[Rfam]
RNA sequence: UGGUGCCCAACGUGGGGCCUGGAUACUGGGGGACAACGUGAGGGACACGAUGGAAGAAGAAGGGGUGCACACCUGCUGAAAUAGUUCGGAGAUGUCGCAGUAGCAUCCUGUGACCGAACUGACAGGUAAGUUGGUCGUUCAAUCAUGGGGCAAGAAUUAAGUCAGCAUCAGAAAUAUGUGAUAGAGUUAAGAGAAGCUUUACAGGCAAAAGGAGUAAAGGUUACAACUGAGGAUUUAUUUCAUUUCUUUGAUUUUGUGAACGACAUCUGCCCAU
Numbered sequence: 001u002g003g004u005g006c007c008c009a010a011c012g013u014g015g016g017g018c019c020u021g022g023a024u025a026c027u028g029g030g031g032g033a034c035a036a037c038g039u040g041a042g043g044g045a046c047a048c049g050a051u052g053g054a055a056g057a058a059g060a061a062g063g064g065g066u067g068c069a070c071a072c073c074u075g076c077u078g079a080a081a082u083a084g085u086u087c088g089g090a091g092a093u094g095u096c097g098c099a100g101u102a103g104c105a106u107c108c109u110g111u112g113a114c115c116g117a118a119c120u121g122a123c124a125g126g127u128a129a130g131u132u133g134g135u136c137g138u139u140c141a142a143u144c145a146u147g148g149g150g151c152a153a154g155a156a157u158u159a160a161g162u163c164a165g166c167a168u169c170a171g172a173a174a175u176a177u178g179u180g181a182u183a184g185a186g187u188u189a190a191g192a193g194a195a196g197c198u199u200u201a202c203a204g205g206c207a208a209a210a211g212g213a214g215u216a217a218a219g220g221u222u223a224c225a226a227c228u229g230a231g232g233a234u235u236u237a238u239u240u241c242a243u244u245u246c247u248u249u250g251a252u253u254u255u256g257u258g259a260a261c262g263a264c265a266u267c268u269g270c271c272c273a274u
Base pairs, nucleotide, nucleotide: 006031007030008029012026013025014024037049038048039047086126087125088123093118096112097111098110099109100108136150138149139148140147141146158201159200160199161197162196209249210248211247212246213245214244218236219235220234221233222232259274262271264269

The family of this 274-nucleotide RNA from Nannospalax galili is "Mason-Pfizer monkey virus packaging signal". The family has 9 seed sequences and 2,921 matches in Rfam 15.1. The organism belongs to Nannospalax, within Eukaryota.